A member of the RNA family "T-box leader" from Cytobacillus horneckiae, 266 nucleotides long.
By type it is a cis-regulatory leader.
The match comes from Rfam's covariance-model search (111 bits).
[Rfam]
RNA sequence: AUAAAAGCGUUGAUGGGAAGAGUACAUUGAUUCGUUCUUAUACAGAGAGCUUCGGUUGGUGAAAAGAAGCAAAGAAAUAUCAAUGGAAGAUGGUCCUCUGAGCUGCAUUUCCGAAUGGUUUUCCUUUAGGUGAUGACGAGAUUUGGCACUCGUUAUAAAUGUCUGGGUAUAAGAGCGUAAAUCCGCUCCGUACUUGUUGAGGCCUAUCAUGUAAGUGUUGGGUGAACAAAGGUGGUAACACGGGAAAUUCAAACCUCGUCCUUUGA
Numbered sequence: 001a002u003a004a005a006a007g008c009g010u011u012g013a014u015g016g017g018a019a020g021a022g023u024a025c026a027u028u029g030a031u032u033c034g035u036u037c038u039u040a041u042a043c044a045g046a047g048a049g050c051u052u053c054g055g056u057u058g059g060u061g062a063a064a065a066g067a068a069g070c071a072a073a074g075a076a077a078u079a080u081c082a083a084u085g086g087a088a089g090a091u092g093g094u095c096c097u098c099u100g101a102g103c104u105g106c107a108u109u110u111c112c113g114a115a116u117g118g119u120u121u122u123c124c125u126u127u128a129g130g131u132g133a134u135g136a137c138g139a140g141a142u143u144u145g146g147c148a149c150u151c152g153u154u155a156u157a158a159a160u161g162u163c164u165g166g167g168u169a170u171a172a173g174a175g176c177g178u179a180a181a182u183c184c185g186c187u188c189c190g191u192a193c194u195u196g197u198u199g200a201g202g203c204c205u206a207u208c209a210u211g212u213a214a215g216u217g218u219u220g221g222g223u224g225a226a227c228a229a230a231g232g233u234g235g236u237a238a239c240a241c242g243g244g245a246a247a248u249u250c251a252a253a254c255c256u257c258g259u260c261c262u263u264u265g266a
Stems, first nucleotide, its partner, number of pairs: 007103002015097004025085006038073002049070005106135004111130002137152003202223005208217001229263004240259005